[Rfam]
RNA sequence: UGGCACACCAGUAGACCUUGUGUAACUGCCUGUAGUCACACAAGGGGGACAGUGUGUGCCAGAGGAAGCAGAGCUGCUGUGAGCCUAUGGCCAGCACUAUCAGUGGUUGGCUGUAUCACAUUACUCUGACAUCU
Numbered sequence: 001u002g003g004c005a006c007a008c009c010a011g012u013a014g015a016c017c018u019u020g021u022g023u024a025a026c027u028g029c030c031u032g033u034a035g036u037c038a039c040a041c042a043a044g045g046g047g048g049a050c051a052g053u054g055u056g057u058g059c060c061a062g063a064g065g066a067a068g069c070a071g072a073g074c075u076g077c078u079g080u081g082a083g084c085c086u087a088u089g090g091c092c093a094g095c096a097c098u099a100u101c102a103g104u105g106g107u108u109g110g111c112u113g114u115a116u117c118a119c120a121u122u123a124c125u126c127u128g129a130c131a132u133c134u
Stems, first nucleotide, its partner, number of pairs: 003059006016045008070127004075123001078120003091110005
Dot-bracket structure: ..((((((.......((((((((..............))))))))........))))))..........((((.(..(((..........(((((..........))))).......)))..))))).......

Shown here is a 134-nucleotide RNA sequence from Monodelphis domestica, a member of the family "Small nucleolar RNA SNORA58". The family's consensus secondary structure was predicted with PFOLD. It is one of the family's seed sequences. On this family, see Huttenhofer et al., EMBO J 2001: "RNomics: an experimental approach that identifies 201 candidates for novel, small, non-messenger RNAs in mouse". Rfam classes the family as an H/ACA-box small nucleolar RNA. ACA52 is a member of the H/ACA class of snoRNA that guide the sites of modification of uridines to pseudouridines.